The family of this 132-nucleotide sequence from Mesobacillus selenatarsenatis is "PyrR binding site".
RNA sequence: AAGUCCUUUAAAGACAGUCCCGUGAGGCUGAGAAGGAAACGGAUUUGCAGGCAGGCAUAUGAUGUAUGUUCUGAUGCAUGCUAACACCACACGUUUACCCUCUUGCCGAUACAGACAAGAGGGUUUUUUACU
Numbered sequence: 001a002a003g004u005c006c007u008u009u010a011a012a013g014a015c016a017g018u019c020c021c022g023u024g025a026g027g028c029u030g031a032g033a034a035g036g037a038a039a040c041g042g043a044u045u046u047g048c049a050g051g052c053a054g055g056c057a058u059a060u061g062a063u064g065u066a067u068g069u070u071c072u073g074a075u076g077c078a079u080g081c082u083a084a085c086a087c088c089a090c091a092c093g094u095u096u097a098c099c100c101u102c103u104u105g106c107c108g109a110u111a112c113a114g115a116c117a118a119g120a121g122g123g124u125u126u127u128u129u130a131c132u
Stems, first nucleotide, its partner, number of pairs: 004037006015030005051081003055077004059072001061070003097124009107114001
By type it is a cis-regulatory element. Rfam describes the family as follows. This family represents the PyrR binding site and terminator structure. The family's consensus secondary structure is taken from published work.